Rfam assigns this 254-nucleotide sequence from Listeria monocytogenes to the family "Listeria sRNA rli43".
RNA sequence: UAAAUGGCGCGGGAUGGUAUACUAUACAAGCGUAUGGUUCAAAAAGAUACUUUGAAUUAAGAAGUACAAUAAAGUUAACUUCAUUAGACAAAAAGAAAAAACAAGGAAGAAUAGUACAUAGUUAUAAAUACUUGGAGAGUGAGGUGUAAUAUGGGGGCAGCUGAUUUUUGGGGUUUCAUAUAUGUAGUUUCAAGAUUAGCCAUUGUUGCGGCAGUAGUUUACUUCUUAUACUUAUUGAGAAAAAUUGCAAAUAA
Numbered sequence: 001u002a003a004a005u006g007g008c009g010c011g012g013g014a015u016g017g018u019a020u021a022c023u024a025u026a027c028a029a030g031c032g033u034a035u036g037g038u039u040c041a042a043a044a045a046g047a048u049a050c051u052u053u054g055a056a057u058u059a060a061g062a063a064g065u066a067c068a069a070u071a072a073a074g075u076u077a078a079c080u081u082c083a084u085u086a087g088a089c090a091a092a093a094a095g096a097a098a099a100a101a102c103a104a105g106g107a108a109g110a111a112u113a114g115u116a117c118a119u120a121g122u123u124a125u126a127a128a129u130a131c132u133u134g135g136a137g138a139g140u141g142a143g144g145u146g147u148a149a150u151a152u153g154g155g156g157g158c159a160g161c162u163g164a165u166u167u168u169u170g171g172g173g174u175u176u177c178a179u180a181u182a183u184g185u186a187g188u189u190u191c192a193a194g195a196u197u198a199g200c201c202a203u204u205g206u207u208g209c210g211g212c213a214g215u216a217g218u219u220u221a222c223u224u225c226u227u228a229u230a231c232u233u234a235u236u237g238a239g240a241a242a243a244a245u246u247g248c249a250a251a252u253a254a
Stems, first nucleotide, its partner, number of pairs: 005213002008210005013204006021038007039055005061191004065186004077175006117134002120132003135169006142162002145159003214248007223241006

It is one of the family's seed sequences. The family's consensus secondary structure was predicted with RNAalifold. By type it is a small RNA. For this family Rfam cites "The Listeria transcriptional landscape from saprophytism to virulence" (Toledo-Arana et al., Nature, 2009). The organism belongs to Listeria, within Bacteria.